[Rfam]
RNA: Small nucleolar RNA SNORA8
Organism: Salvator merianae
RNA sequence: UGCACUGCAUGGUAUCUGCACCCAGCAGCCUGUUCCUGAUGGCGUGUUCAUAAAGCAGUGCCACAUUGACUCAGCACGUGGCAUCGUUGGUACUCAAGCUGGAGUGCUUGUUGAACCUGGUAUUUUUGUUGAGACAGAA
Numbered sequence: 001u002g003c004a005c006u007g008c009a010u011g012g013u014a015u016c017u018g019c020a021c022c023c024a025g026c027a028g029c030c031u032g033u034u035c036c037u038g039a040u041g042g043c044g045u046g047u048u049c050a051u052a053a054a055g056c057a058g059u060g061c062c063a064c065a066u067u068g069a070c071u072c073a074g075c076a077c078g079u080g081g082c083a084u085c086g087u088u089g090g091u092a093c094u095c096a097a098g099c100u101g102g103a104g105u106g107c108u109u110g111u112u113g114a115a116c117c118u119g120g121u122a123u124u125u126u127u128g129u130u131g132a133g134a135c136a137g138a139a
Base pairs, nucleotide, nucleotide: 002061003060004059005058006057007056015054017052018047019046020045021044023042024040026038027037028036064128065127068124069123071120072119073118074117080108081107082106083105084104